[Rfam]
This 83-nucleotide sequence from Trichechus manatus belongs to the Rfam family "mir-500 microRNA precursor family". The family has 38 seed sequences and 402 matches in Rfam 15.1. The source organism's lineage runs through Eukaryota, Eumetazoa, Afrotheria, Sirenia and Trichechus manatus. Its family is annotated with miRNA-mediated post-transcriptional gene silencing and RISC complex in the Gene Ontology.
RNA sequence: GCUCCUUCUUUCUAAUCCUUGGUACCUGGUGGUAGUGCUUUCUAAAUGCAAUGCACCUGGGCAAGGAUUCAGAGCGGGGAUGA
Dot-bracket structure: .............(((((((....(((((((....(((.........)))...)))).))).)))))))..............
Pairs were carried over by alignment from the consensus structure, which was predicted with RNAalifold.